[Rfam]
RNA sequence: CUGUAGCCAAGGCAGCCUUCGGAAAGGCCUGGACACUGAUCAGCCGGUCGUGCAGUGCUACGACAAAACACCGGCAGCC
Numbered sequence: 001c002u003g004u005a006g007c008c009a010a011g012g013c014a015g016c017c018u019u020c021g022g023a024a025a026g027g028c029c030u031g032g033a034c035a036c037u038g039a040u041c042a043g044c045c046g047g048u049c050g051u052g053c054a055g056u057g058c059u060a061c062g063a064c065a066a067a068a069c070a071c072c073g074g075c076a077g078c079c
Stems, first nucleotide, its partner, number of pairs: 001015004007032003011028001017022001034057005043075005
RNA: Proteo-phage-1 RNA
Organism: Pseudomonas sp. GM18